[Rfam]
RNA sequence: AAUAUAUUGUGGCAAACUUAUCCAAAGAUAAGGACGCAAAGCCGUGGGUCUAAGGGAAGAUAUCCUAUGAUUGCCAGGUUGCCGAU
Number, nucleotide and partner (000 for none) at each position: 001a000002a000003u000004a000005u000006a000007u000008u000009g000010u000011g000012g037013c036014a000015a000016a000017c032018u031019u030020a029021u028022c027023c000024a000025a000026a000027g022028a021029u020030a019031a018032g017033g000034a000035c000036g013037c012038a000039a000040a080041g079042c078043c077044g000045u076046g075047g074048g071049u070050c069051u000052a000053a000054g000055g065056g064057a063058a000059g000060a000061u000062a000063u057064c056065c055066u000067a000068u000069g050070a049071u048072u000073g000074c047075c046076a045077g043078g042079u041080u040081g000082c000083c000084g000085a000086u000